[Rfam]
RNA: Mammalian CPEB3 ribozyme
Organism: Alligator sinensis
RNA sequence: UUAUAAGUUCAAGGACAUGGCAAAAGCACUCAUGGUGCAUCCUGUCAGAUCCCAAUGAGUCUUUGAAUUCUGCU
Numbered sequence: 001u002u003a004u005a006a007g008u009u010c011a012a013g014g015a016c017a018u019g020g021c022a023a024a025a026g027c028a029c030u031c032a033u034g035g036u037g038c039a040u041c042c043u044g045u046c047a048g049a050u051c052c053c054a055a056u057g058a059g060u061c062u063u064u065g066a067a068u069u070c071u072g073c074u
Stems, first nucleotide, its partner, number of pairs: 013042003019074004024069002026038003047062004052057001